[Rfam]
RNA sequence: GGAGAGGUGGCAGAGUGGUCGAAUGCGCUCGCUUGGAAAGCGUGUGUAGGGCAACCUACCGAGGGUUCGAAUCCCUCCCUCUCCG
Numbered sequence: 001g002g003a004g005a006g007g008u009g010g011c012a013g014a015g016u017g018g019u020c021g022a023a024u025g026c027g028c029u030c031g032c033u034u035g036g037a038a039a040g041c042g043u044g045u046g047u048a049g050g051g052c053a054a055c056c057u058a059c060c061g062a063g064g065g066u067u068c069g070a071a072u073c074c075c076u077c078c079c080u081c082u083c084c085g
Base pairs, nucleotide, nucleotide: 001084002083003082004081005080006079007078010026011025012024028044030042031041032040061077062076063075064074065073
tRNA: an 85-nucleotide RNA. Gene Ontology term of the family: triplet codon-amino acid adaptor activity. It scores 58 bits against the family's covariance model. It is annotated as a transfer RNA.